[Rfam]
RNA sequence: ACAGUCUGAAAAUCACUUGGGGUCUCCUGUGGCCUCUGGUGCGAUAACUGUCCUGUCGGCAGAGGGAGCAUUAAACUCAUUGCCAACGGUAAAGUGUGGGGAGUGAUACCCAUGUUCCUAUAAUC
Numbered sequence: 001a002c003a004g005u006c007u008g009a010a011a012a013u014c015a016c017u018u019g020g021g022g023u024c025u026c027c028u029g030u031g032g033c034c035u036c037u038g039g040u041g042c043g044a045u046a047a048c049u050g051u052c053c054u055g056u057c058g059g060c061a062g063a064g065g066g067a068g069c070a071u072u073a074a075a076c077u078c079a080u081u082g083c084c085a086a087c088g089g090u091a092a093a094g095u096g097u098g099g100g101g102a103g104u105g106a107u108a109c110c111c112a113u114g115u116u117c118c119u120a121u122a123a124u125c
Base pairs, nucleotide, nucleotide: 006050008048010045014041015040016039021034022033023032024031065118067116068115069114070113071112077106078105079104080103081102086097087096
RNA: Small nucleolar RNA ACA64
Organism: Bucco capensis